[Rfam]
RNA sequence: UCCUCCACCACCUCCCCUGCAAACGUCCAGUGACGCCGAGGAAAUGGACGUUAGCUCCGGCGGUGAUGGACC
Numbered sequence: 001u002c003c004u005c006c007a008c009c010a011c012c013u014c015c016c017c018u019g020c021a022a023a024c025g026u027c028c029a030g031u032g033a034c035g036c037c038g039a040g041g042a043a044a045u046g047g048a049c050g051u052u053a054g055c056u057c058c059g060g061c062g063g064u065g066a067u068g069g070a071c072c
Stems, first nucleotide, its partner, number of pairs: 009065004014060002019055002022052008034041001

This 72-nucleotide RNA from Pangasianodon hypophthalmus belongs to the Rfam family "mir-1306 microRNA precursor family". The family's consensus secondary structure was predicted with RNAalifold. The match comes from Rfam's covariance-model search (88 bits). Gene Ontology terms of the family: RISC complex and miRNA-mediated post-transcriptional gene silencing.